[Rfam]
RNA sequence: AAGAAUACGAUGACAGAGAGUAGUAAGCAAAAAGAGCUUCUUCAGAAAGCUGAUGGAUGAUGAGAAUCAGCGUAGAACUUUUGCCGAAUGGACUCUGGAGUGCUGUGCCCAACCAGACAUCUGUGAUAUGUAGGAUGCGUCUGUAGUAGGUAGGUCGGUGGUUCGCCGUUAUCCGAACACAUUCAAGAUUGGAAUAAGGAAAAUAGAGUGUACGAAGAUGCUCUAUAUUAUUUCGAUGAAUAAGGGUGGCACCACGGUCACACGUCCCUUGC
Dot-bracket structure: ......((......((((........(((((......(.(........((((((...........))))))).).....)))))........))))...)).((.((((.......................................)))))).(((.......)))............................................(((((.............))))).......((((.......(((......)))))))...
A member of the RNA family "T-box leader" from Paenibacillus nuruki, 272 nucleotides long. The source organism's lineage runs through Bacteria, Bacillota, Bacilli, Caryophanales and Paenibacillus. The family's RNA type in Rfam is cis-regulatory leader. The family's consensus secondary structure is taken from published work. For this family Rfam cites "tRNA determinants for transcription antitermination of the Bacillus subtilis tyrS gene" (Grundy et al., RNA, 2000).